Shown here is a 110-nucleotide sequence from Bacillus sp. DNRA2, a member of the family "TPP riboswitch aptamer (THI element)". Taxonomically the source falls in Bacillus (Bacteria, Bacillati, Bacillota, Bacillaceae). Pairs were carried over by alignment from the consensus structure, which is taken from published work. Rfam describes the family as follows. Vitamin B(1) in its active form thiamin pyrophosphate (TPP) is an essential coenzyme that is synthesised by coupling of pyrimidine and thiazole moieties in bacteria.
[Rfam]
RNA sequence: AUUUCACACUGGGGGUGCCGGGGGUUGGCCGGCUGAGAUAAAGAUCCAUUUCUUUGACCCUUAAACUUGAUCUGGGUAAUACCAGCGUAGGGAAGUGUAUUCAUUUUGUA
Dot-bracket structure: .....(((((((((..(((((.......)))))......(((((......)))))..))))....((((..((((......))))..))))..)))))............